[Rfam]
RNA: U11 spliceosomal RNA
Nucleotides: 138
Base pairs, nucleotide, nucleotide: 008087009086010085011084012083013028014027015026016025017024029058030057031056033054034053035052036051037049038048039047059082060081061080062079063078064077065076106136107135108134109133111132112131113130114129115128117127118126119125
Number, partner (000 for none) and nucleotide at each position: 001000a002000a003000a004000a005000a006000g007000g008087g009086u010085a011084c012083u013028c014027g015026c016025u017024a018000c019000u020000u021000c022000a023000a024017u025016a026015g027014c028013g029058u030057g031056u032000u033054g034053g035052u036051c037049c038048a039047u040000u041000u042000u043000u044000a045000a046000c047039a048038u049037g050000u051036g052035a053034u054033c055000u056031g057030c058029a059082g060081g061080g062079u063078a064077u065076g066000g067000c068000u069000a070000u071000c072000a073000a074000g075000a076065c077064a078063u079062a080061c081060c082059c083012a084011g085010u086009a087008c088000a089000u090000a091000a092000u093000u094000u095000u096000u097000g098000a099000g100000a101000u102000g103000g104000c105000g106136a107135g108134g109133c110000u111132g112131u113130u114129a115128g116000c117127u118126g119125c120000c121000a122000c123000u124000u125119g126118c127117a128115c129114u130113g131112a132111c133109g134108c135107c136106u137000c138000c